[Rfam]
RNA sequence: GCAAGAAAAGGGCAAACCUAUUGAAAGAUAGGGACGCAAAGUCUCAGGUCUAAGGUAGAAGUACUAUGACGGCUGGACUGCUGAA
Numbered sequence: 001g002c003a004a005g006a007a008a009a010g011g012g013c014a015a016a017c018c019u020a021u022u023g024a025a026a027g028a029u030a031g032g033g034a035c036g037c038a039a040a041g042u043c044u045c046a047g048g049u050c051u052a053a054g055g056u057a058g059a060a061g062u063a064c065u066a067u068g069a070c071g072g073c074u075g076g077a078c079u080g081c082u083g084a085a
Stems, first nucleotide, its partner, number of pairs: 012037002017032006040079004045075003048070003055064003
A member of the RNA family "c-di-GMP-I riboswitch aptamer" from Robertmurraya siralis, 85 nucleotides long. The organism belongs to Robertmurraya, within Bacteria. Rfam links the family to the GO term cyclic-di-GMP binding. A search with the family's covariance model found it, with a score of 83 bits. The base pairs follow the family's consensus structure, which is taken from published work.